[Rfam]
RNA sequence: UAGUCAUUACCAAGGCUUUUAGAAUGCAGUUUCUCAUUUGCUGGGGACAAUGGCCAUAAAUCAUUUUGCUGCUAGGAUUUUCUACCUGCUAUCUUAUUCAGCCUAAUGGAAACAUCU
Numbered sequence: 001u002a003g004u005c006a007u008u009a010c011c012a013a014g015g016c017u018u019u020u021a022g023a024a025u026g027c028a029g030u031u032u033c034u035c036a037u038u039u040g041c042u043g044g045g046g047a048c049a050a051u052g053g054c055c056a057u058a059a060a061u062c063a064u065u066u067u068g069c070u071g072c073u074a075g076g077a078u079u080u081u082c083u084a085c086c087u088g089c090u091a092u093c094u095u096a097u098u099c100a101g102c103c104u105a106a107u108g109g110a111a112a113c114a115u116c117u
Stems, first nucleotide, its partner, number of pairs: 003054005010046002026041004069109003075103002078100001087096001
Dot-bracket structure: ..(((((..((..............((((........))))...))...)))))..............(((...((.(........(........)...).))...)))........
RNA: Small nucleolar RNA SNORA32